[Rfam]
RNA sequence: GACACCUGACGGGAACGCUCGUAUAGUACGAGAGGAACUACGAGUGGUGGCCACUGGUGUACCGGUUGUCCGAGAGGGCAGUUGCCGGGCAGCUACGCCACACGGGGUAAGAGCUGAACGCAUCUAAGCUCGAAACCCACCUGAAAAAGAGGUGUCACCGAGGUCACUCGUAGAAGACGAGUUCGAUAGACUCGGGGUGUACGCGACGAGGCAACGAGUCGUUCAGCCCGCGAGCACUAACAGACCAAG
Numbered sequence: 001g002a003c004a005c006c007u008g009a010c011g012g013g014a015a016c017g018c019u020c021g022u023a024u025a026g027u028a029c030g031a032g033a034g035g036a037a038c039u040a041c042g043a044g045u046g047g048u049g050g051c052c053a054c055u056g057g058u059g060u061a062c063c064g065g066u067u068g069u070c071c072g073a074g075a076g077g078g079c080a081g082u083u084g085c086c087g088g089g090c091a092g093c094u095a096c097g098c099c100a101c102a103c104g105g106g107g108u109a110a111g112a113g114c115u116g117a118a119c120g121c122a123u124c125u126a127a128g129c130u131c132g133a134a135a136c137c138c139a140c141c142u143g144a145a146a147a148a149g150a151g152g153u154g155u156c157a158c159c160g161a162g163g164u165c166a167c168u169c170g171u172a173g174a175a176g177a178c179g180a181g182u183u184c185g186a187u188a189g190a191c192u193c194g195g196g197g198u199g200u201a202c203g204c205g206a207c208g209a210g211g212c213a214a215c216g217a218g219u220c221g222u223u224c225a226g227c228c229c230g231c232g233a234g235c236a237c238u239a240a241c242a243g244a245c246c247a248a249g
Stems, first nucleotide, its partner, number of pairs: 001156007010143004016046008047101005055095003062088005067080005104138003111131005162246004166182005187239003191234004195229003203222005210215001
Dot-bracket structure: (((((((..((((..((((((((...............))))))))(((((...(((....((((((((((....)))))...)))))....))).)))))..(((....(((((...........)))))....))).))))......))))))).....(((((((((.......)))))....(((.(((((((.....(((((..(....)..)))))....))).))))..)))...))))...
Shown here is a 249-nucleotide part of an RNA from Salinigranum rubrum, a member of the family "Archaeal large subunit ribosomal RNA". Clan: LSU clan. On this family, see Yusupov et al., Science 2001: "Crystal structure of the ribosome at 5.5 A resolution". The base pairs follow the family's consensus structure, which is taken from published work.